This 76-nucleotide sequence belongs to the Rfam family "freshwater-2 RNA".

RNA sequence: CAUUGCAUGGUUGCAAUGACUUACGCGGAUACCACCGCGUAGUGGCUAGAACCCACAUAUAAGGAGAAAAAAAAUG
Dot-bracket structure: ((((((......))))))...(((((((......)))))))((((.......))))....................
Numbered sequence: 001c002a003u004u005g006c007a008u009g010g011u012u013g014c015a016a017u018g019a020c021u022u023a024c025g026c027g028g029a030u031a032c033c034a035c036c037g038c039g040u041a042g043u044g045g046c047u048a049g050a051a052c053c054c055a056c057a058u059a060u061a062a063g064g065a066g067a068a069a070a071a072a073a074a075u076g
Stems, first nucleotide, its partner, number of pairs: 001018006022041007042056004
Rfam classes the family as a cis-regulatory element.